[Rfam]
RNA sequence: UUUGAUGUAAAUUGAUUUAUGUUUGGAUACACUUGUACAAAAGUGAUUCUUAUGAAUUAUAGUUGUUUAGAUAC
Numbered sequence: 001u002u003u004g005a006u007g008u009a010a011a012u013u014g015a016u017u018u019a020u021g022u023u024u025g026g027a028u029a030c031a032c033u034u035g036u037a038c039a040a041a042a043g044u045g046a047u048u049c050u051u052a053u054g055a056a057u058u059a060u061a062g063u064u065g066u067u068u069a070g071a072u073a074c
Stems, first nucleotide, its partner, number of pairs: 013059006021053002025049004030045005
The record is a 74-nucleotide sequence from Medicago truncatula, which matches "MIR5272 microRNA precursor family" in Rfam. Gene Ontology terms of the family: miRNA-mediated post-transcriptional gene silencing and RISC complex.